[Rfam]
RNA sequence: UGCUUUGCGGCACGUGUUGCUGACCUGAUCAGCACAUGCCAGCAGCCUGGGUCUUUCGGCUGCCGCGGGAAUCCUCUCGUGCGACCCACCAGUCCGCUUCGCAUCGACCACCGCGGACGGGCGUUUCACAACGCCGAUGU
Numbered sequence: 001u002g003c004u005u006u007g008c009g010g011c012a013c014g015u016g017u018u019g020c021u022g023a024c025c026u027g028a029u030c031a032g033c034a035c036a037u038g039c040c041a042g043c044a045g046c047c048u049g050g051g052u053c054u055u056u057c058g059g060c061u062g063c064c065g066c067g068g069g070a071a072u073c074c075u076c077u078c079g080u081g082c083g084a085c086c087c088a089c090c091a092g093u094c095c096g097c098u099u100c101g102c103a104u105c106g107a108c109c110a111c112c113g114c115g116g117a118c119g120g121g122c123g124u125u126u127c128a129c130a131a132c133g134c135c136g137a138u139g140u
Base pairs, nucleotide, nucleotide: 011038012037014035019033020032021031022030023029042063043062044061045060046059047058049087050086051085052084064081065080066079067078068077069076070075113140114139115138120135121134122133123132124131125130
radC RNA: a 140-nucleotide RNA from Ralstonia pickettii. The base pairs follow the family's consensus structure, which is taken from published work. Rfam's curators put it in the seed alignment.